[Rfam]
RNA sequence: ACGCAGAAGGGAGGUGGUCCGAACGAUGGUUAGUCAUUCUUGGACUAGCGAGGUGGCUGUCCGCUAGGACGUCGUCAUCUGGACCUUCCGUCCGGAUGUCAUUGUGACGUCCUGGCGAAAUCCUCAACAGACACCGGAACCCCGGGCUGCCGGCGGUCGCAGGAGCACUCCUCGGCCUUGGUCCAGCCGGCCCACCUUUCAUGAGGCGGAGACGGCCCGGGGUUCUUCUGUU
Numbered sequence: 001a002c003g004c005a006g007a008a009g010g011g012a013g014g015u016g017g018u019c020c021g022a023a024c025g026a027u028g029g030u031u032a033g034u035c036a037u038u039c040u041u042g043g044a045c046u047a048g049c050g051a052g053g054u055g056g057c058u059g060u061c062c063g064c065u066a067g068g069a070c071g072u073c074g075u076c077a078u079c080u081g082g083a084c085c086u087u088c089c090g091u092c093c094g095g096a097u098g099u100c101a102u103u104g105u106g107a108c109g110u111c112c113u114g115g116c117g118a119a120a121u122c123c124u125c126a127a128c129a130g131a132c133a134c135c136g137g138a139a140c141c142c143c144g145g146g147c148u149g150c151c152g153g154c155g156g157u158c159g160c161a162g163g164a165g166c167a168c169u170c171c172u173c174g175g176c177c178u179u180g181g182u183c184c185a186g187c188c189g190g191c192c193c194a195c196c197u198u199u200c201a202u203g204a205g206g207c208g209g210a211g212a213c214g215g216c217c218c219g220g221g222g223u224u225c226u227u228c229u230g231u232u
Stems, first nucleotide, its partner, number of pairs: 013061006062117007070109006136226013151206001
Dot-bracket structure: ............((((((.....................................))))))(((((((.((((((............................)))))).)))))))..................(((((((((((((..(......................................................).......)))))))))))))......
RNA: Actinobacteria sRNA Ms_IGR-5